[Rfam]
RNA sequence: UCGUUAAGCGAUGACAUAUACAAAGUGCCAUGUCAUGAUGCCUUGUCACUAACACGUCAUUGACACAUCAUUGAAGGUGAUGACAUGGCAAUGAGGUGUUCGUGACAAGACGCAAUGACUUGACACUUUGUUUGCCACAUCAUCACUUAAUGAAA
Numbered sequence: 001u002c003g004u005u006a007a008g009c010g011a012u013g014a015c016a017u018a019u020a021c022a023a024a025g026u027g028c029c030a031u032g033u034c035a036u037g038a039u040g041c042c043u044u045g046u047c048a049c050u051a052a053c054a055c056g057u058c059a060u061u062g063a064c065a066c067a068u069c070a071u072u073g074a075a076g077g078u079g080a081u082g083a084c085a086u087g088g089c090a091a092u093g094a095g096g097u098g099u100u101c102g103u104g105a106c107a108a109g110a111c112g113c114a115a116u117g118a119c120u121u122g123a124c125a126c127u128u129u130g131u132u133u134g135c136c137a138c139a140u141c142a143u144c145a146c147u148u149a150a151u152g153a154a155a
Base pairs, nucleotide, nucleotide: 001153002152003151004150005149006148007147008146010144011143012142013141014140017137018133020131021130022129023128024127025126026125027124029122030121032119033118034117035116036115039112040111042109043108045106046105047104048103049102051100052099053098054097055096068083069082070081071080